Shown here is a 102-nucleotide RNA sequence from Rhodothalassium salexigens, a member of the family "Glycine riboswitch aptamer". The source organism's lineage runs through Bacteria, Pseudomonadati, Pseudomonadota, Rhodothalassium and Rhodothalassium salexigens. Rfam describes the family as follows. This family represents the bacterial glycine riboswitch. Glycine riboswitches usually consist of two metabolite-binding aptamers domains with similar structures in tandem. The aptamers cooperatively bind glycine to regulate the expression of downstream genes. In Bacillus subtilis, this riboswitch is found upstream of the gcvT operon which controls glycine degradation. The match comes from Rfam's covariance-model search (58 bits).

[Rfam]
RNA sequence: GCUCGGUUGGUGGGAGAGAUCGGGGGUGGCGCCAUGCCAUGCCUCGGCGCCGAAGGAGCAACCUCCCCGGAAACUCUCAGGCGGAAGGACCGCCGACCGAGG
Numbered sequence: 001g002c003u004c005g006g007u008u009g010g011u012g013g014g015a016g017a018g019a020u021c022g023g024g025g026g027u028g029g030c031g032c033c034a035u036g037c038c039a040u041g042c043c044u045c046g047g048c049g050c051c052g053a054a055g056g057a058g059c060a061a062c063c064u065c066c067c068c069g070g071a072a073a074c075u076c077u078c079a080g081g082c083g084g085a086a087g088g089a090c091c092g093c094c095g096a097c098c099g100a101g102g
Stems, first nucleotide, its partner, number of pairs: 006097008020047006049082003052078002056076003062070002